CyVA-1 RNA: a 77-nucleotide RNA from Stanieria cyanosphaera.
[Rfam]
RNA sequence: UUACUGUAGGGAAGUUUUAUCGCUGUGUUCCCUUACUACACAUUGAAGGAGAGCGAUGUCAAAUGUGUAGACAGUCA
Number, nucleotide and partner (000 for none) at each position: 001u077002u000003a075004c074005u073006g072007u000008a000009g032010g031011g030012a029013a000014g000015u000016u000017u000018u000019a000020u000021c000022g000023c000024u000025g000026u000027g000028u000029u012030c011031c010032c009033u000034u000035a000036c000037u069038a068039c067040a066041c065042a064043u063044u062045g000046a000047a000048g000049g000050a000051g000052a000053g000054c000055g000056a000057u000058g000059u000060c000061a000062a044063a043064u042065g041066u040067g039068u038069a037070g000071a000072c006073a005074g004075u003076c000077a001
Cyanobacteria, Acidobacteria (1 example), Verrucomicrobia (1 example).